[Rfam]
RNA sequence: GUGGAAGGGGCAUGCAGAGGAGCAGGAGAUUCAGUUGGAGCUGGAGUUCACCUCCCCUUUUCUGUCUCCUGUGCUUGCCUCUUCCAUU
Number, nucleotide and partner (000 for none) at each position: 001g087002u086003g085004g084005a083006a082007g081008g080009g079010g078011c077012a076013u000014g074015c073016a072017g000018a070019g069020g068021a067022g066023c000024a065025g000026g000027a000028g000029a000030u000031u000032c000033a000034g000035u000036u000037g000038g000039a000040g000041c000042u000043g000044g000045a000046g000047u000048u000049c000050a000051c000052c000053u000054c000055c000056c000057c000058u000059u000060u000061u000062c000063u000064g000065u024066c022067u021068c020069c019070u018071g000072u016073g015074c014075u000076u012077g011078c010079c009080u008081c007082u006083u005084c004085c003086a002087u001088u000
The family of this 88-nucleotide RNA sequence from Oryza brachyantha is "MIR528 microRNA precursor family". It scores 76 bits against the family's covariance model. NCBI's taxonomy places the organism under Eukaryota, Viridiplantae, Liliopsida, Oryzeae, Oryza. The family's consensus secondary structure was predicted with RNAalifold. The family has 7 seed sequences and 41 matches in Rfam 15.1.